The family of this 135-nucleotide RNA sequence from Dehalobacter sp. 12DCB1 is "Molybdenum/Tungsten riboswitch aptamer (Moco RNA motif)". Lineage of the source: Bacteria > Bacillati > Bacillota > Clostridia > Dehalobacter. The family's consensus secondary structure is taken from published work. A search with the family's covariance model found it, with a score of 69 bits. Gene Ontology terms of the family: tungstate binding, molybdenum ion binding and regulation of gene expression.
RNA sequence: UAGAAUAUUUUUCUCCGAGCCUUGGAUCCUAAAGUUGCAAUGCUGCCAUGGAUGCAAGGUCUGGACAAAGUCCACGGAGUAGCAGAAGAAAUUCUGUUACUUGCUGUAUCGCGAAGGAGAUGUGAAAAAGAAUUG
Numbered sequence: 001u002a003g004a005a006u007a008u009u010u011u012u013c014u015c016c017g018a019g020c021c022u023u024g025g026a027u028c029c030u031a032a033a034g035u036u037g038c039a040a041u042g043c044u045g046c047c048a049u050g051g052a053u054g055c056a057a058g059g060u061c062u063g064g065a066c067a068a069a070g071u072c073c074a075c076g077g078a079g080u081a082g083c084a085g086a087a088g089a090a091a092u093u094c095u096g097u098u099a100c101u102u103g104c105u106g107u108a109u110c111g112c113g114a115a116g117g118a119g120a121u122g123u124g125a126a127a128a129a130g131a132a133u134u135g
Stems, first nucleotide, its partner, number of pairs: 006126001012120005019060006026053004034046002062074005077102011103112002